[Rfam]
RNA sequence: UUACUUAGUCUCCUAGCCUAACGGCUAAUGGCUGGUGGUUUUUUAACCACCGGCCU
Numbered sequence: 001u002u003a004c005u006u007a008g009u010c011u012c013c014u015a016g017c018c019u020a021a022c023g024g025c026u027a028a029u030g031g032c033u034g035g036u037g038g039u040u041u042u043u044u045a046a047c048c049a050c051c052g053g054c055c056u
Stems, first nucleotide, its partner, number of pairs: 014027005030055010
The family of this 56-nucleotide sequence from Vibrio vulnificus is "Pseudomonas sRNA P26".
The source organism's lineage runs through Bacteria, Pseudomonadota, Vibrionales, Vibrio and Vibrio vulnificus.
The family's RNA type in Rfam is non-coding RNA gene.